Overview: This 79-nucleotide RNA sequence from Chanos chanos belongs to the Rfam family "mir-219 microRNA precursor family". The source organism's lineage runs through Eukaryota, Eumetazoa, Deuterostomia, Gonorynchiformes and Chanos. Rfam 15.1 lists 1,318 matches to the family in 774 species.

RNA sequence: CUAGGGCUGAUUGUCCAAACGCAAUUCUUGUGUCUUCCUGAUCUGAGUGCAGGAGUUGUGGAUGGACAUCAUGCCUCAG
Numbered sequence: 001c002u003a004g005g006g007c008u009g010a011u012u013g014u015c016c017a018a019a020c021g022c023a024a025u026u027c028u029u030g031u032g033u034c035u036u037c038c039u040g041a042u043c044u045g046a047g048u049g050c051a052g053g054a055g056u057u058g059u060g061g062a063u064g065g066a067c068a069u070c071a072u073g074c075c076u077c078a079g
Stems, first nucleotide, its partner, number of pairs: 003076003008071004013067005020060011
Notes
For this family Rfam cites "Vertebrate microRNA genes" (Lim et al., Science, 2003).